[Rfam]
RNA: Small nucleolar RNA U105B
RNA sequence: UUGCAUGCAGCUGAUGACACCACUGCUGCUGAGACUGAUUGCUCAGUCUCAGGAAAUGCCCUGACACACCAUGG
Numbered sequence: 001u002u003g004c005a006u007g008c009a010g011c012u013g014a015u016g017a018c019a020c021c022a023c024u025g026c027u028g029c030u031g032a033g034a035c036u037g038a039u040u041g042c043u044c045a046g047u048c049u050c051a052g053g054a055a056a057u058g059c060c061c062u063g064a065c066a067c068a069c070c071a072u073g074g
Base pairs, nucleotide, nucleotide: 006068007067010021012019013018029046030045031044032043033042